Rfam assigns this 268-nucleotide RNA from Paenibacillus naphthalenovorans to the family "glmS glucosamine-6-phosphate activated ribozyme aptamer". This entry contains a glucosamine-6-phosphate activated ribozyme that is found in the mRNA for GlmS. GlmS is an enzyme that uses fructose-6-phosphate and glutamine to generate glucosamine-6-phosphate. The ribozyme catalyses self cleavage of the glmS mRNA that is thought to regulate GlmS activity. It is annotated as a riboswitch.

[Rfam]
RNA sequence: UUGUCAUACGAAGCGCCAGAACUGAGCGGCUGUUUCUGAUGGUUUAAGUUUCUGCGAAUCCGGUCCUUCCAGUCUCGGGUACUGCCGGGAUCCGUACAUUUUUUUCUUGGACAGCGCGGAAAGCAAAAGCAUAUCAGGGGGCGGCUCAGUUGACGAGGUGAAGGUGUUCGAAGGAUUCGGCGGGGGCCUUCCGGUGAUGAUCCAUACCGUAAGUCGAAAUGCAAAACGUCCGGGCGACCGGGCGGACAAGAGUUCGACGGGAUCAAGA
Number, nucleotide and partner (000 for none) at each position: 001u000002u000003g000004u000005c000006a000007u000008a000009c000010g000011a000012a000013g000014c000015g000016c000017c000018a000019g000020a151021a150022c149023u148024g147025a146026g145027c144028g000029g142030c141031u140032g000033u000034u000035u000036c000037u000038g000039a000040u000041g000042g000043u000044u000045u000046a000047a000048g000049u000050u000051u000052c000053u000054g000055c000056g000057a000058a000059u000060c000061c000062g000063g000064u000065c000066c000067u000068u000069c000070c000071a000072g000073u000074c000075u000076c000077g000078g000079g000080u000081a000082c000083u000084g000085c000086c000087g000088g000089g000090a000091u000092c000093c000094g000095u000096a000097c000098a000099u000100u000101u000102u000103u000104u000105u000106c000107u000108u000109g000110g000111a000112c000113a000114g000115c000116g000117c000118g000119g000120a000121a000122a000123g000124c000125a000126a000127a000128a000129g000130c000131a000132u000133a000134u000135c000136a000137g000138g000139g000140g031141g030142c029143g000144g027145c026146u025147c024148a023149g022150u021151u020152g000153a000154c000155g000156a000157g000158g000159u000160g191161a190162a189163g188164g187165u000166g000167u000168u180169c179170g178171a177172a000173g000174g000175a000176u000177u171178c170179g169180g168181c000182g000183g000184g000185g000186g000187c164188c163189u162190u161191c160192c209193g208194g207195u206196g205197a000198u000199g000200a000201u000202c000203c000204a000205u196206a195207c194208c193209g192210u000211a000212a000213g258214u257215c256216g255217a254218a253219a000220u000221g000222c000223a000224a000225a000226a000227c244228g243229u242230c241231c240232g239233g238234g000235c000236g000237a000238c233239c232240g231241g230242g229243c228244g227245g000246a000247c000248a000249a000250g000251a000252g000253u218254u217255c216256g215257a214258c213259g000260g000261g000262a000263u000264c000265a000266a000267g000268a000